[Rfam]
RNA sequence: GACAGUUUUAAAUGAUGUUACUUUUUUCCAAUCGAGAAAGACAUCAAUUAAAUCUGUGCU
Numbered sequence: 001g002a003c004a005g006u007u008u009u010a011a012a013u014g015a016u017g018u019u020a021c022u023u024u025u026u027u028c029c030a031a032u033c034g035a036g037a038a039a040g041a042c043a044u045c046a047a048u049u050a051a052a053u054c055u056g057u058g059c060u
Base pairs, nucleotide, nucleotide: 002057003056004055005054007052008051009050010049013046014045015044016043017042018041021040022039023038024037025036026035027034

mir-723 microRNA precursor family: a 60-nucleotide RNA from Danionella cerebrum. The base pairs follow the family's consensus structure, which was predicted with RNAalifold. The source organism's lineage runs through Eukaryota, Craniata, Vertebrata, Cypriniformes and Danionella. Its family is annotated with RISC complex and miRNA-mediated post-transcriptional gene silencing in the Gene Ontology.